This 166-nucleotide sequence from Notodromas monacha belongs to the Rfam family "U12 minor spliceosomal RNA". A search with the family's covariance model found it, with a score of 97 bits. It is annotated as a spliceosomal small nuclear RNA. On this family, see Tarn and Steitz, Trends Biochem Sci 1997: "Pre-mRNA splicing: the discovery of a new spliceosome doubles the challenge". Rfam 15.1 lists 2,106 matches to the family in 1,170 species.
[Rfam]
Nucleotides: 166
Stems, first nucleotide, its partner, number of pairs: 004023005032053005039046001057085003061081008099166004106161007114148001117145001120142002123139002126136002
Number, partner (000 for none) and nucleotide at each position: 001000g002000u003000g004023c005022c006021u007020u008019a009000a010000a011000c012000u013000a014000a015000u016000g017000a018000g019008u020007a021006a022005g023004g024000a025000a026000a027000a028000u029000a030000c031000g032053a033052a034051g035050c036049c037000c038000u039046g040000g041000u042000g043000a044000u045000g046039c047000u048000u049036g050035g051034c052033u053032u054000g055000c056000u057085g058084a059083g060000c061081u062080u063079g064078c065077a066076c067075u068074c069000c070000c071000u072000g073000u074068g075067g076066g077065u078064g079063u080062a081061a082000u083059u084058u085057c086000a087000c088000c089000a090000a091000u092000u093000u094000u095000u096000g097000g098000a099166a100165g101164g102163g103000u104000a105000c106161a107160g108159g109158u110157c111156g112155c113000c114148c115000u116000g117145c118000u119000u120142c121141u122000c123139c124138c125000c126136g127135c128000c129000u130000a131000c132000u133000u134000u135127g136126c137000a138124g139123g140000g141121a142120g143000c144000u145117g146000g147000c148114g149000g150000u151000u152000c153000a154000g155112g156111u157110g158109a159108u160107c161106u162000u163102c164101c165100c166099u